[Rfam]
RNA: mir-148/mir-152 microRNA precursor family
RNA sequence: CUGGGCUAAAGUUCUGUGAUACACUCUGACUGUGAAUGUCUAUGCUAGUCAGUGCAUAACAGAACUUUGUCCCGGG
Numbered sequence: 001c002u003g004g005g006c007u008a009a010a011g012u013u014c015u016g017u018g019a020u021a022c023a024c025u026c027u028g029a030c031u032g033u034g035a036a037u038g039u040c041u042a043u044g045c046u047a048g049u050c051a052g053u054g055c056a057u058a059a060c061a062g063a064a065c066u067u068u069g070u071c072c073c074g075g076g
Stems, first nucleotide, its partner, number of pairs: 004072002007069010022054004028050004